[Rfam]
RNA sequence: GCACCCAAUCUUUCCCAUUCCUGCUGCUUUGUGCUGGCCUGGGGACAGUGGGUGCUACAACAUGAGCAGAGGAUAUCCAGACGGGUUGCUUUCCAUUUGUCUUGGGGCCUGUCUCUACAACUCUGCCACAUUG
Number, nucleotide and partner (000 for none) at each position: 001g055002c054003a053004c052005c051006c000007a000008a000009u000010c000011u000012u045013u044014c043015c042016c041017a040018u000019u000020c037021c036022u000023g000024c000025u000026g000027c000028u000029u000030u000031g000032u000033g000034c000035u000036g021037g020038c000039c000040u017041g016042g015043g014044g013045a012046c000047a000048g000049u000050g000051g005052g004053u003054g002055c001056u000057a000058c000059a000060a000061c000062a000063u000064g000065a000066g126067c125068a124069g123070a122071g121072g000073a000074u000075a000076u000077c000078c000079a114080g113081a112082c111083g110084g109085g108086u107087u000088g000089c000090u000091u000092u000093c105094c104095a103096u000097u000098u000099g000100u000101c000102u000103u095104g094105g093106g000107g086108c085109c084110u083111g082112u081113c080114u079115c000116u000117a000118c000119a000120a000121c071122u070123c069124u068125g067126c066127c000128a000129c000130a000131u000132u000133g000
Shown here is a 133-nucleotide sequence from Cavia porcellus, a member of the family "Small nucleolar RNA SNORA55".
Pairs were carried over by alignment from the consensus structure, which was predicted with PFOLD.
The family's RNA type in Rfam is H/ACA-box small nucleolar RNA.
Rfam describes the family as follows. ACA55 is a member of the H/ACA class of snoRNA that guide the sites of modification of uridines to pseudouridines.
Rfam's curators put it in the seed alignment.
Its family is annotated with nucleolus and RNA processing in the Gene Ontology.